Shown here is a 128-nucleotide sequence from Salmo salar, a member of the family "Small nucleolar RNA ACA64". The literature on the family includes a 2006 paper in RNA by Schattner et al., "A computational screen for mammalian pseudouridylation guide H/ACA RNAs". By type it is an H/ACA-box small nucleolar RNA. It scores 82 bits against the family's covariance model. The family's consensus secondary structure was predicted with WAR.

[Rfam]
RNA sequence: ACUGUCUGAAAAUUACCUUCGAUGUGCCAGUUGUCUGAGGUAAGAUGACUGUGCCGACAGUAUUGUGGUACGUUAAGCUUAUUGCCUGCUCUGUAUUGCAAGGUGAUUAAACCCAUGUGCCCACAUUC
Numbered sequence: 001a002c003u004g005u006c007u008g009a010a011a012a013u014u015a016c017c018u019u020c021g022a023u024g025u026g027c028c029a030g031u032u033g034u035c036u037g038a039g040g041u042a043a044g045a046u047g048a049c050u051g052u053g054c055c056g057a058c059a060g061u062a063u064u065g066u067g068g069u070a071c072g073u074u075a076a077g078c079u080u081a082u083u084g085c086c087u088g089c090u091c092u093g094u095a096u097u098g099c100a101a102g103g104u105g106a107u108u109a110a111a112c113c114c115a116u117g118u119g120c121c122c123a124c125a126u127u128c
Stems, first nucleotide, its partner, number of pairs: 006051001008049001010046001013043004021035004067121001069119005079109001081107003087100003
Dot-bracket structure: .....(.(.(..((((....((((.......))))....))))..)..).)...............(.(((((.....(.(((...(((........)))....))).).....))))).).......